RNA: Archaeal large subunit ribosomal RNA, nucleotides 958 to 1408
RNA sequence: CCCCCCGAAAUGCGUCUUAGCGCAGCCCUCCCGGAGGUAUCCGGCAGGGUAGAGUUACAGAUUGGAGGCCUCGAGGGAAACCUCGGGGUCUCCAGUCUAACUCCGAACCUGCUGGAGCCGAAGAAGGGAGGAGUGGGUCGCCCGGCGUAAGGUUGGGCGGCGAGAGGGGAACAACCCAGACCCGGGUUAAGGCCCCUAAGUCCCGGUUAAGUGCCAAUCAAAGGGCGUCCCCAGCCUUAGACAGCGGGGAGGUGGGCCCAGCAGCAGCCAUCCUCUAAGGAGUGCGUAACAGCUCACCCGCCGAGGCUGGGGGCCCCGAAGAUUGGUCGGGGCUCAAACCGGGCGCCGAUACCCGGGUGGUGGGCCUCUUUGAGGCUCACCAGGUAGGGGGGCGCUGCGGCGGGGCAGAAGGCGGGCCGUGAGGUCCGCUGGACCCGUCGCAGGUGCAGAU
Numbered sequence: 001c002c003c004c005c006c007g008a009a010a011u012g013c014g015u016c017u018u019a020g021c022g023c024a025g026c027c028c029u030c031c032c033g034g035a036g037g038u039a040u041c042c043g044g045c046a047g048g049g050u051a052g053a054g055u056u057a058c059a060g061a062u063u064g065g066a067g068g069c070c071u072c073g074a075g076g077g078a079a080a081c082c083u084c085g086g087g088g089u090c091u092c093c094a095g096u097c098u099a100a101c102u103c104c105g106a107a108c109c110u111g112c113u114g115g116a117g118c119c120g121a122a123g124a125a126g127g128g129a130g131g132a133g134u135g136g137g138u139c140g141c142c143c144g145g146c147g148u149a150a151g152g153u154u155g156g157g158c159g160g161c162g163a164g165a166g167g168g169g170a171a172c173a174a175c176c177c178a179g180a181c182c183c184g185g186g187u188u189a190a191g192g193c194c195c196c197u198a199a200g201u202c203c204c205g206g207u208u209a210a211g212u213g214c215c216a217a218u219c220a221a222a223g224g225g226c227g228u229c230c231c232c233a234g235c236c237u238u239a240g241a242c243a244g245c246g247g248g249g250a251g252g253u254g255g256g257c258c259c260a261g262c263a264g265c266a267g268c269c270a271u272c273c274u275c276u277a278a279g280g281a282g283u284g285c286g287u288a289a290c291a292g293c294u295c296a297c298c299c300g301c302c303g304a305g306g307c308u309g310g311g312g313g314c315c316c317c318g319a320a321g322a323u324u325g326g327u328c329g330g331g332g333c334u335c336a337a338a339c340c341g342g343g344c345g346c347c348g349a350u351a352c353c354c355g356g357g358u359g360g361u362g363g364g365c366c367u368c369u370u371u372g373a374g375g376c377u378c379a380c381c382a383g384g385u386a387g388g389g390g391g392g393c394g395c396u397g398c399g400g401c402g403g404g405g406c407a408g409a410a411g412g413c414g415g416g417c418c419g420u421g422a423g424g425u426c427c428g429c430u431g432g433a434c435c436c437g438u439c440g441c442a443g444g445u446g447c448a449g450a451u
Stems, first nucleotide, its partner, number of pairs: 001392006011024005026133001027131006036119003040116008052104001053102002060097010071086006137161009166177003181357007191347003200344001202343006223317003227314010244301005250274003255269003275279001280295001284293002358382002362378005393446001395443010411430008